The family of this 85-nucleotide RNA is "c-di-GMP-II-GCG riboswitch aptamer". Its Rfam clan is "c-di-GMP_II riboswitch clan". On this family, see Weinberg et al., Proc Natl Acad Sci U S A 2017: "Bioinformatic analysis of riboswitch structures uncovers variant classes with altered ligand specificity". The sequence is in the family's curated seed alignment.
[Rfam]
RNA sequence: GACACGCACGGAGGCGAUGACGCGCGGCCCCAGACCCGGCCGCCGCGACCGCGCUGAGCCACUGGCGAGCCCGACCGCGUUGGAU
Numbered sequence: 001g002a003c004a005c006g007c008a009c010g011g012a013g014g015c016g017a018u019g020a021c022g023c024g025c026g027g028c029c030c031c032a033g034a035c036c037c038g039g040c041c042g043c044c045g046c047g048a049c050c051g052c053g054c055u056g057a058g059c060c061a062c063u064g065g066c067g068a069g070c071c072c073g074a075c076c077g078c079g080u081u082g083g084a085u
Stems, first nucleotide, its partner, number of pairs: 001085001003083001006080002009077003013060003022054006029047001038072002041067004